[Rfam]
RNA sequence: ACACUCUAGUUUCUCUACAGAGAGGAUACAUCUUUCGCCUUUAACUAAAGAUGAACGUGGAGAGGAACACUAUGAGUUACAACUAAUGUGUUGAUGCCCUGCUUCAUUGCUGGGCU
Number, nucleotide and partner (000 for none) at each position: 001a000002c000003a077004c076005u075006c074007u000008a000009g068010u067011u066012u065013c064014u063015c062016u061017a000018c059019a058020g000021a000022g000023a000024g000025g000026a000027u000028a000029c053030a052031u051032c050033u049034u048035u047036c000037g000038c000039c000040u000041u000042u000043a000044a000045c000046u000047a035048a034049a033050g032051a031052u030053g029054a000055a000056c000057g000058u019059g018060g000061a016062g015063a014064g013065g012066a011067a010068c009069a000070c000071u000072a000073u000074g006075a005076g004077u003078u000079a000080c000081a000082a000083c000084u000085a000086a000087u000088g000089u000090g000091u000092u000093g000094a116095u000096g115097c114098c113099c112100u000101g110102c000103u000104u000105c000106a000107u000108u000109g000110c101111u000112g099113g098114g097115c096116u094

This 116-nucleotide RNA sequence from Liparis tanakae belongs to the Rfam family "U5 spliceosomal RNA".